[Rfam]
RNA sequence: GAACAAUGAUGGAAACAGUUUUACUGCCUAACUUUGUAACUAUGAAGGUUUCUACACUUGACCUAAGCUCA
Numbered sequence: 001g002a003a004c005a006a007u008g009a010u011g012g013a014a015a016c017a018g019u020u021u022u023a024c025u026g027c028c029u030a031a032c033u034u035u036g037u038a039a040c041u042a043u044g045a046a047g048g049u050u051u052c053u054a055c056a057c058u059u060g061a062c063c064u065a066a067g068c069u070c071a
Base pairs, nucleotide, nucleotide: 001070002069004067013035014034015033018032019031020030

This 71-nucleotide RNA from Urocitellus parryii belongs to the Rfam family "Small nucleolar RNA U2-30". A search with the family's covariance model found it, with a score of 68 bits. Gene Ontology terms of the family: nucleolus and RNA processing. The organism belongs to Urocitellus, within Eukaryota. On this family, see Tycowski et al., Curr Biol 2004: "Guide RNAs with 5' Caps and Novel Box C/D snoRNA-like Domains for Modification of snRNAs in Metazoa". Pairs were carried over by alignment from the consensus structure, which is taken from published work.